[Rfam]
RNA: Small nucleolar RNA J33
Organism: Oryza sativa
RNA sequence: CUGUGAGGGGAAUGAUGUACUACUACAGGGCUCUCAAGAUGCUUGCUUUUCUUGAUAAUGCAUCUGAAGUAGAAAUUACAG
Numbered sequence: 001c002u003g004u005g006a007g008g009g010g011a012a013u014g015a016u017g018u019a020c021u022a023c024u025a026c027a028g029g030g031c032u033c034u035c036a037a038g039a040u041g042c043u044u045g046c047u048u049u050u051c052u053u054g055a056u057a058a059u060g061c062a063u064c065u066g067a068a069g070u071a072g073a074a075a076u077u078a079c080a081g
Base pairs, nucleotide, nucleotide: 001081002080003079004078005077006076